Rfam assigns this 102-nucleotide sequence from Oryzomicrobium terrae to the family "TPP riboswitch aptamer (THI element)". The organism belongs to Oryzomicrobium, within Bacteria.

[Rfam]
RNA sequence: GGACCACGUUAGGGGUGCCGCGCGGAUGGGCUGCGCGGCUGAGAGAGUCCCUUGGAACCUGAUCCGGGUCAUGCCGGCGAAGGGAAACGCCAUGCCGCCAUC
Numbered sequence: 001g002g003a004c005c006a007c008g009u010u011a012g013g014g015g016u017g018c019c020g021c022g023c024g025g026a027u028g029g030g031c032u033g034c035g036c037g038g039c040u041g042a043g044a045g046a047g048u049c050c051c052u053u054g055g056a057a058c059c060u061g062a063u064c065c066g067g068g069u070c071a072u073g074c075c076g077g078c079g080a081a082g083g084g085a086a087a088c089g090c091c092a093u094g095c096c097g098c099c100a101u102c
Stems, first nucleotide, its partner, number of pairs: 007089004011052004016046001017039009058083003064077004